[Rfam]
RNA sequence: CCUUGUUAGUCGGGGAGCCUUAAAUUAACUUAAGUGCUGAGACGGUGACUGCCGGACCCGCUGUACCUGAUCCAGUUAAUGCUGGCGGAGGAAACUAACGGCUAAAUAUU
Number, nucleotide and partner (000 for none) at each position: 001c000002c000003u000004u000005g000006u098007u097008a096009g095010u094011c060012g059013g058014g057015g000016a000017g037018c036019c000020u034021u033022a000023a000024a000025u000026u000027a000028a000029c000030u000031u000032a000033a021034g020035u000036g018037c017038u000039g000040a000041g000042a000043c000044g053045g052046u051047g000048a000049c000050u000051g046052c045053c044054g000055g000056a000057c014058c013059c012060g011061c000062u000063g000064u000065a000066c091067c090068u089069g000070a000071u000072c085073c084074a083075g082076u000077u000078a000079a000080u000081g000082c075083u074084g073085g072086c000087g000088g000089a068090g067091g066092a000093a000094a010095c009096u008097a007098a006099c000100g000101g000102c000103u000104a000105a000106a000107u000108a000109u000110u000

A member of the RNA family "TPP riboswitch aptamer (THI element)" from Oceanisphaera avium, 110 nucleotides long. A search with the family's covariance model found it, with a score of 69 bits. Pairs were carried over by alignment from the consensus structure, which is taken from published work.